Rfam assigns this 75-nucleotide RNA from Juglans regia to the family "Small nucleolar RNA snoR60". A search with the family's covariance model found it, with a score of 44 bits.

[Rfam]
RNA sequence: UAGCAAAAUCUAUGUGAGUUACUUGGGUUUCCCUUCAACAUGUUAUGAUUGAUGCAAGCUCAGGUUUCAGAUGCU
Numbered sequence: 001u002a003g004c005a006a007a008a009u010c011u012a013u014g015u016g017a018g019u020u021a022c023u024u025g026g027g028u029u030u031c032c033c034u035u036c037a038a039c040a041u042g043u044u045a046u047g048a049u050u051g052a053u054g055c056a057a058g059c060u061c062a063g064g065u066u067u068c069a070g071a072u073g074c075u
Base pairs, nucleotide, nucleotide: 002075003074004073005072

Source information
By type it is a C/D-box small nucleolar RNA. Rfam 15.1 lists 1,133 matches to the family in 227 species.